Source information: Rhodo-rpoB RNA: an 87-nucleotide RNA. The family's consensus secondary structure is taken from published work.
[Rfam]
RNA sequence: UGAUCGGCGUCACCUUGGCGGGAUGACUAGAAUAGAUCGAACACUCUGUCUCAAUGGGCGUGUCGCCGUGACCCAACGGUGGAUACG
Numbered sequence: 001u002g003a004u005c006g007g008c009g010u011c012a013c014c015u016u017g018g019c020g021g022g023a024u025g026a027c028u029a030g031a032a033u034a035g036a037u038c039g040a041a042c043a044c045u046c047u048g049u050c051u052c053a054a055u056g057g058g059c060g061u062g063u064c065g066c067c068g069u070g071a072c073c074c075a076a077c078g079g080u081g082g083a084u085a086c087g
Base pairs, nucleotide, nucleotide: 001039002038003037004036005035009027010026011025012024013022014021059087060086061085062084063083064081065080066079067078068077

It is one of the family's seed sequences.